Rfam assigns this 511-nucleotide RNA sequence from Saccharopolyspora phatthalungensis to the family "Saccharopolyspora sRNA 350". By type it is an antisense RNA. Rfam links the family to the GO term regulation of secondary metabolite biosynthetic process. The organism belongs to Saccharopolyspora, within Bacteria.
[Rfam]
RNA sequence: UUGUACGUGUGGUCCCAAGUGUAUUGAUGAGGGGCCAACACCCGGGCGCCGAAGAAUUCGCCAUCGGCGAGCACGCUGAGCACGGUGUCGUCGCCGUACUCGCCGGCGCCGAUCUUGUUGACCUUGCCGUGCGCGAUGAGCACGACCUCGUCCGCUGAUUGCCCGGCGGUCGCGAUCACCUGACCCGGCUCGAACUCGCGCUGCACGAACCGGUCGGCCAACGCGCCCAGCACCGAGUCGUCGUCGAAACCGCGCAGCAGCGGCAGUUCGGCGAGUUCCUGCGGGAUGACGCGAACAUCGGAACCGGUGUUCGUGAAGGUGAUCCGCCCGUCCCCGACGGCGUAGGUCAACCGGCGGUUGACCCGAUACGUGCCCGCCGAGACGUCCAUCCACGGCAGCAUUCGAAGCAGCCAUCGUGAGGUGGUGCCCUGCAUCUGCGGCUGGGAUUUGGUCGUCGUCGACAGCUUCCGCGCCGCCGCGGUGGUCAGGCUCAGUGCGGCCUGUUCUACGG
Number, nucleotide and partner (000 for none) at each position: 001u000002u000003g000004u000005a000006c000007g389008u388009g387010u000011g385012g000013u000014c000015c381016c000017a000018a000019g327020u000021g325022u000023a000024u322025u321026g320027a000028u318029g000030a000031g000032g000033g000034g000035c313036c000037a311038a310039c309040a308041c307042c306043c000044g000045g305046g304047c000048g000049c301050c300051g299052a298053a000054g233055a000056a000057u230058u229059c000060g227061c000062c225063a000064u223065c111066g110067g109068c108069g000070a000071g000072c000073a000074c000075g103076c000077u102078g101079a100080g099081c000082a097083c096084g095085g094086u093087g000088u000089c000090g000091u000092c000093g086094c085095c084096g083097u082098a000099c080100u079101c078102g077103c075104c000105g000106g000107c000108g068109c067110c066111g065112a000113u000114c000115u000116u000117g222118u221119u220120g219121a000122c217123c216124u000125u000126g000127c212128c000129g210130u209131g206132c000133g204134c203135g202136a000137u000138g199139a000140g197141c000142a000143c000144g195145a000146c000147c000148u000149c192150g191151u000152c000153c000154g189155c188156u187157g186158a000159u000160u183161g000162c000163c000164c000165g000166g173167c172168g000169g000170u000171c000172g167173c166174g000175a000176u000177c000178a000179c000180c000181u000182g000183a160184c000185c000186c157187g156188g155189c154190u000191c150192g149193a000194a000195c144196u000197c140198g000199c138200g000201c000202u135203g134204c133205a000206c131207g000208a000209a130210c129211c000212g127213g000214u000215c000216g123217g122218c000219c120220a119221a118222c117223g064224c000225g062226c000227c060228c000229a058230g057231c000232a000233c054234c000235g000236a000237g000238u000239c000240g290241u289242c288243g287244u286245c285246g000247a000248a000249a000250c000251c281252g280253c000254g278255c000256a277257g276258c275259a000260g000261c270262g269263g000264c000265a000266g000267u000268u000269c262270g261271g000272c000273g000274a000275g258276u257277u256278c254279c000280u252281g251282c000283g000284g000285g245286a244287u243288g242289a241290c240291g000292c000293g000294a000295a000296c000297a000298u052299c051300g050301g049302a000303a000304c046305c045306g042307g041308u040309g039310u038311u037312c000313g035314u000315g000316a000317a000318g028319g000320u026321g025322a024323u000324c000325c021326g000327c019328c000329c342330g341331u340332c339333c000334c000335c000336g000337a000338c000339g332340g331341c330342g329343u000344a000345g000346g000347u000348c000349a000350a000351c379352c000353g378354g377355c376356g375357g374358u000359u000360g000361a371362c370363c000364c000365g000366a000367u000368a000369c000370g362371u361372g000373c000374c357375c356376g355377c354378c353379g351380a000381g015382a000383c000384g000385u011386c000387c009388a008389u007390c000391c431392a430393c000394g428395g427396c426397a425398g000399c423400a422401u421402u000403c418404g417405a000406a000407g415408c000409a000410g000411c000412c000413a000414u000415c407416g000417u404418g403419a000420g000421g401422u400423g399424g000425u397426g396427c395428c394429c000430u392431g391432c000433a000434u000435c000436u000437g476438c475439g474440g473441c000442u000443g000444g469445g468446a467447u000448u464449u463450g462451g000452u460453c000454g000455u000456c000457g000458u000459c000460g452461a000462c450463a449464g448465c000466u000467u446468c445469c444470g000471c000472g000473c440474c439475g438476c437477c510478g509479c000480g505481g504482u503483g000484g501485u000486c499487a000488g497489g000490c000491u000492c000493a000494g000495u000496g000497c488498g000499g486500c000501c484502u000503g482504u481505u480506c000507u000508a000509c478510g477511g000